[Rfam]
RNA sequence: CACCCCAUGGAGUGCUCGGGUCCGCCGCAACUCCUGGGUCCCGUGGGGCCGGCGACCGGUAUCCAGGCCAAUACGGUGUCCUCGCACCGCCGCCGGGUACCGGUCGCCAACCCG
Numbered sequence: 001c002a003c004c005c006c007a008u009g010g011a012g013u014g015c016u017c018g019g020g021u022c023c024g025c026c027g028c029a030a031c032u033c034c035u036g037g038g039u040c041c042c043g044u045g046g047g048g049c050c051g052g053c054g055a056c057c058g059g060u061a062u063c064c065a066g067g068c069c070a071a072u073a074c075g076g077u078g079u080c081c082u083c084g085c086a087c088c089g090c091c092g093c094c095g096g097g098u099a100c101c102g103g104u105c106g107c108c109a110a111c112c113c114g
Base pairs, nucleotide, nucleotide: 003048004047005046006045007044008043009042010041015038016037017036018035019034020033051108052107053106054105055104056103057102058101059100060099
Description: This 114-nucleotide RNA sequence from Aureimonas glaciei belongs to the Rfam family "EcpR1". Perviously named SmelC291, SmrC10, or Sra33. According to its overproduction phenotype it was renamed Elongated Cell Phenotype RNA1. Rfam classes the family as a small RNA. NCBI's taxonomy places the organism under Bacteria, Pseudomonadota, Alphaproteobacteria, Hyphomicrobiales, Aureimonas. The base pairs follow the family's consensus structure, which was predicted with WAR.